T-box leader: a 221-nucleotide sequence from Bacillus anthracis. Rfam classes the family as a cis-regulatory leader. Rfam describes the family as follows. Uncharged tRNA acts as the effector for transcription antitermination of genes in the T-box leader family.

RNA sequence: GAAUCGGCGUUGAUAGGAUUUAGUAGUAUUUCGAUUUCUGAUUUCAGAGAGCUGGCGGUCGGUGCGAACCAGUACAGAACGAAUUAUGAAUUACCCCCUGGAGCUUCUUUUGCGAAACGUAAGAAGUAGUGAAAGACGGUUAUAGACCGUUAUGUCUAAAGAGUGGUGAAACGAAACUGUUUCACAAUUUAGGGUGGUACCGCGAAAUUUUCGUCCCUGCA
Numbered sequence: 001g002a003a004u005c006g007g008c009g010u011u012g013a014u015a016g017g018a019u020u021u022a023g024u025a026g027u028a029u030u031u032c033g034a035u036u037u038c039u040g041a042u043u044u045c046a047g048a049g050a051g052c053u054g055g056c057g058g059u060c061g062g063u064g065c066g067a068a069c070c071a072g073u074a075c076a077g078a079a080c081g082a083a084u085u086a087u088g089a090a091u092u093a094c095c096c097c098c099u100g101g102a103g104c105u106u107c108u109u110u111u112g113c114g115a116a117a118c119g120u121a122a123g124a125a126g127u128a129g130u131g132a133a134a135g136a137c138g139g140u141u142a143u144a145g146a147c148c149g150u151u152a153u154g155u156c157u158a159a160a161g162a163g164u165g166g167u168g169a170a171a172c173g174a175a176a177c178u179g180u181u182u183c184a185c186a187a188u189u190u191a192g193g194g195u196g197g198u199a200c201c202g203c204g205a206a207a208u209u210u211u212c213g214u215c216c217c218u219g220c221a
Stems, first nucleotide, its partner, number of pairs: 007104002015099003026087003030083002039076002042074001051073005107135007137149003166185007191218004202214005